[Rfam]
RNA: ZMP/ZTP riboswitch aptamer (pfl RNA motif)
RNA sequence: UCAACGGGCCGUGACUGGCGCGCUGGGAUGGGACCGACCAUCAGGGAGCGGCCCUGCGGGACAGUAGGGGUCCCGCGGGAAAACAGUGCCGUGCGCCUGGGCCGAACGU
Numbered sequence: 001u002c003a004a005c006g007g008g009c010c011g012u013g014a015c016u017g018g019c020g021c022g023c024u025g026g027g028a029u030g031g032g033a034c035c036g037a038c039c040a041u042c043a044g045g046g047a048g049c050g051g052c053c054c055u056g057c058g059g060g061a062c063a064g065u066a067g068g069g070g071u072c073c074c075g076c077g078g079g080a081a082a083a084c085a086g087u088g089c090c091g092u093g094c095g096c097c098u099g100g101g102c103c104g105a106a107c108g109u
Stems, first nucleotide, its partner, number of pairs: 006054007015045002017097005028041004088102003